RNA sequence: AAUGGGAGUGAUGAGAUUUUCACCUUAGGCAGAUAAAACAGGCCGUUCUGGUUGUUUGCUGUAUCUGCCGAUGCUGGGGUUUGUCAUAGUUACACUGACUACAUU
Numbered sequence: 001a002a003u004g005g006g007a008g009u010g011a012u013g014a015g016a017u018u019u020u021c022a023c024c025u026u027a028g029g030c031a032g033a034u035a036a037a038a039c040a041g042g043c044c045g046u047u048c049u050g051g052u053u054g055u056u057u058g059c060u061g062u063a064u065c066u067g068c069c070g071a072u073g074c075u076g077g078g079g080u081u082u083g084u085c086a087u088a089g090u091u092a093c094a095c096u097g098a099c100u101a102c103a104u105u
Stems, first nucleotide, its partner, number of pairs: 001105004005100002
RNA: Small nucleolar RNA SNORD46
Organism: Callipepla squamata